Rfam assigns this 191-nucleotide sequence from Scyliorhinus torazame to the family "U2 spliceosomal RNA". Rfam 15.1 lists 71,512 matches to the family in 2,642 species. It is annotated as a spliceosomal small nuclear RNA. The source organism's lineage runs through Eukaryota, Opisthokonta, Chondrichthyes, Elasmobranchii and Scyliorhinus.
RNA sequence: AUGUGACCUCAGCCUUUUGGCUCAGAUCAAGUGUAGUAUCUGUUCUUGUCAGUUUAAUAUCUGAUGCGUUGCCUAUCUGGGCACCAAAUAUUAAAUAGAUUUUUGGGACUCGGAGAUGCUUCAGGGGCUUGCCCCUUCCGCUCUAAGCAUCGACGUGGUCUUCCAAUGAUUCCAAAAAUGGUGCCCUCACC
Numbered sequence: 001a002u003g004u005g006a007c008c009u010c011a012g013c014c015u016u017u018u019g020g021c022u023c024a025g026a027u028c029a030a031g032u033g034u035a036g037u038a039u040c041u042g043u044u045c046u047u048g049u050c051a052g053u054u055u056a057a058u059a060u061c062u063g064a065u066g067c068g069u070u071g072c073c074u075a076u077c078u079g080g081g082c083a084c085c086a087a088a089u090a091u092u093a094a095a096u097a098g099a100u101u102u103u104u105g106g107g108a109c110u111c112g113g114a115g116a117u118g119c120u121u122c123a124g125g126g127g128c129u130u131g132c133c134c135c136u137u138c139c140g141c142u143c144u145a146a147g148c149a150u151c152g153a154c155g156u157g158g159u160c161u162u163c164c165a166a167u168g169a170u171u172c173c174a175a176a177a178a179u180g181g182u183g184c185c186c187u188c189a190c191c
Base pairs, nucleotide, nucleotide: 008025009024011022012021013020014019047066048065049064050063051062052061068084069083072080073079112144113143114142115141118138124135125134126133127132147184148183149182150181151180152179156174157173158172